[Rfam]
A member of the RNA family "c-di-AMP riboswitch aptamer (ydaO/yuaA leader)" from Aneurinibacillus sp. XH2, 158 nucleotides long.

RNA sequence: CCAACCUGAUCGCUGAGUCCCAAAUAGGGAACGGGGGAACCAACCGCGGUAUUCAAAAUUAUAAGCCGCACGGGGUGAAUCUUGAAUAGCAAAUUCAAGUAGGGCGACUCUCACGCCCGAAUCCGUCAGCUAACCUCGUAAGCGUGUCGAGAGGAGGA
Numbered sequence: 001c002c003a004a005c006c007u008g009a010u011c012g013c014u015g016a017g018u019c020c021c022a023a024a025u026a027g028g029g030a031a032c033g034g035g036g037g038a039a040c041c042a043a044c045c046g047c048g049g050u051a052u053u054c055a056a057a058a059u060u061a062u063a064a065g066c067c068g069c070a071c072g073g074g075g076u077g078a079a080u081c082u083u084g085a086a087u088a089g090c091a092a093a094u095u096c097a098a099g100u101a102g103g104g105c106g107a108c109u110c111u112c113a114c115g116c117c118c119g120a121a122u123c124c125g126u127c128a129g130c131u132a133a134c135c136u137c138g139u140a141a142g143c144g145u146g147u148c149g150a151g152a153g154g155a156g157g158a
Stems, first nucleotide, its partner, number of pairs: 011144004018030003031139006041072001073124003081099007102118004
Its family is annotated with cyclic-di-AMP binding and regulation of gene expression in the Gene Ontology. It scores 98 bits against the family's covariance model.